[Rfam]
Purine riboswitch aptamer: a 102-nucleotide sequence from Bacillus mesophilum. Pairs were carried over by alignment from the consensus structure, which is taken from published work. The match comes from Rfam's covariance-model search (84 bits).
RNA sequence: UGAAAAUUAAAUAUUGUUUUUCAUAUAAUCGUAGGAAUAUGGCCUACAAGUUUCUACCUGUCUACCGUAAAUAAACAGGCUAUGAAAAGCAGAGACAGGAUC
Number, nucleotide and partner (000 for none) at each position: 001u000002g000003a000004a000005a000006a000007u000008u000009a000010a000011a000012u000013a000014u000015u000016g000017u000018u088019u087020u086021u085022c084023a083024u082025a081026u000027a000028a000029u049030c000031g047032u046033a045034g044035g043036a000037a000038u000039a000040u000041g000042g000043c035044c034045u033046a032047c031048a000049a029050g000051u000052u000053u000054c000055u000056a000057c000058c078059u077060g076061u075062c000063u073064a072065c000066c000067g000068u000069a000070a000071a000072u064073a063074a000075a061076c060077a059078g058079g000080c000081u025082a024083u023084g022085a021086a020087a019088a018089g000090c000091a000092g000093a000094g000095a000096c000097a000098g000099g000100a000101u000102c000